[Rfam]
RNA sequence: AAGGAAAAACUUUCUGCAAAUCCACUAAUGCUUUUAUUCAUCAGUGGAUUUGUAGAAAGCUUUACCAG
Numbered sequence: 001a002a003g004g005a006a007a008a009a010c011u012u013u014c015u016g017c018a019a020a021u022c023c024a025c026u027a028a029u030g031c032u033u034u035u036a037u038u039c040a041u042c043a044g045u046g047g048a049u050u051u052g053u054a055g056a057a058a059g060c061u062u063u064a065c066c067a068g
Stems, first nucleotide, its partner, number of pairs: 003066002006063003010059017028041003
RNA: mir-3012 microRNA precursor family